[Rfam]
RNA sequence: UGCAGAUGGCCAUGAUAGUUUAAGCCAGAAUGUCUGAACCUGGCUGAAGUUUUGCUGAUAAACCCUUUAUGGCUCUGAGGCUUCUCUGGUG
Numbered sequence: 001u002g003c004a005g006a007u008g009g010c011c012a013u014g015a016u017a018g019u020u021u022a023a024g025c026c027a028g029a030a031u032g033u034c035u036g037a038a039c040c041u042g043g044c045u046g047a048a049g050u051u052u053u054g055c056u057g058a059u060a061a062a063c064c065c066u067u068u069a070u071g072g073c074u075c076u077g078a079g080g081c082u083u084c085u086c087u088g089g090u091g
Base pairs, nucleotide, nucleotide: 004085005084006083008081010079